[Rfam]
RNA sequence: AGUCUCAUAGUUAGGGUCAUUGUAGAAGCGUGCUCGUCGCGACCCCUGCCAGCCCUUUUCUGGGCUGCAAUUCUACA
Numbered sequence: 001a002g003u004c005u006c007a008u009a010g011u012u013a014g015g016g017u018c019a020u021u022g023u024a025g026a027a028g029c030g031u032g033c034u035c036g037u038c039g040c041g042a043c044c045c046c047u048g049c050c051a052g053c054c055c056u057u058u059u060c061u062g063g064g065c066u067g068c069a070a071u072u073c074u075a076c077a
Stems, first nucleotide, its partner, number of pairs: 014045005021077007028040003050067006

Shown here is a 77-nucleotide RNA sequence from Parnassius apollo, a member of the family "Mammalian CPEB3 ribozyme". Pairs were carried over by alignment from the consensus structure, which is taken from published work. A search with the family's covariance model found it, with a score of 49 bits.